[Rfam]
The record is a 134-nucleotide RNA sequence from Sporosarcina luteola, which matches "PyrR binding site" in Rfam. Rfam's curators write: This family represents the PyrR binding site and terminator structure. This RNA structure is found upstream of a variety of genes involved in pyrimidine biosynthesis and transport. The family has 41 seed sequences and 1,498 matches in Rfam 15.1. It is annotated as a cis-regulatory element.

RNA sequence: GACACCUUUAAGAUCAGUCCAGAGAGGCUGGGAAGGUUGCACGGAAGUACAGUAGAAUAGCUGCGCGCUAUCCUUCGGUACGUAUUUUUCUGCACCUGUACCCUCAUGCCAUACUGGCAAGAGGGUUUUUUAUU
Numbered sequence: 001g002a003c004a005c006c007u008u009u010a011a012g013a014u015c016a017g018u019c020c021a022g023a024g025a026g027g028c029u030g031g032g033a034a035g036g037u038u039g040c041a042c043g044g045a046a047g048u049a050c051a052g053u054a055g056a057a058u059a060g061c062u063g064c065g066c067g068c069u070a071u072c073c074u075u076c077g078g079u080a081c082g083u084a085u086u087u088u089u090c091u092g093c094a095c096c097u098g099u100a101c102c103c104u105c106a107u108g109c110c111a112u113a114c115u116g117g118c119a120a121g122a123g124g125g126u127u128u129u130u131u132a133u134u
Stems, first nucleotide, its partner, number of pairs: 004037006014031006048080003052076001054074002057071005098128001100126006107119004